[Rfam]
RNA sequence: GAUAAUCCUCGUUAGGUGAGGCUCCUGUUCGGAGAUACGCUACUGCCCAAAAACGUCCAAAGACGCCAAUGGGUCAACAAGAACCAUCGACUUAAGGUGGUUUUUAACGUAGCUGGACUAAGUCCUAUGCCGUUCAGUGCUAAAGCUCAAACGAAUGGAGGAGAAGG
Number, nucleotide and partner (000 for none) at each position: 001g000002a000003u000004a000005a000006u162007c161008c160009u159010c158011g152012u151013u095014a000015g147016g146017u145018g000019a000020g141021g140022c139023u000024c000025c137026u136027g135028u000029u000030c132031g131032g130033a000034g000035a000036u000037a000038c000039g113040c112041u111042a110043c109044u000045g074046c073047c072048c071049a070050a000051a000052a000053a000054c065055g064056u063057c062058c000059a000060a000061a000062g057063a056064c055065g054066c000067c000068a000069a000070u049071g048072g047073g046074u045075c000076a000077a000078c000079a000080a104081g103082a102083a101084c000085c000086a098087u097088c096089g000090a000091c000092u000093u000094a000095a013096g088097g087098u086099g000100g000101u083102u082103u081104u080105u000106a000107a000108c000109g043110u042111a041112g040113c039114u000115g125116g124117a123118c000119u000120a000121a000122g000123u117124c116125c115126u000127a000128u000129g000130c032131c031132g030133u000134u000135c027136a026137g025138u000139g022140c021141u020142a000143a000144a000145g017146c016147u015148c000149a000150a000151a012152c011153g000154a000155a000156u000157g000158g010159a009160g008161g007162a006163g000164a000165a000166g000167g000
The family of this 167-nucleotide RNA from Alkalibacillus haloalkaliphilus is "M-box riboswitch aptamer (ykoK leader)". M-box riboswitch, also know as ykoK leader is described as a metaloregulatory RNA that sense divalent metals and function as a genetic control element of genes related to divalent metal transport in bacteria. Its family is annotated with response to magnesium ion and regulation of gene expression in the Gene Ontology. The organism belongs to Alkalibacillus, within Bacteria. The match comes from Rfam's covariance-model search (141 bits).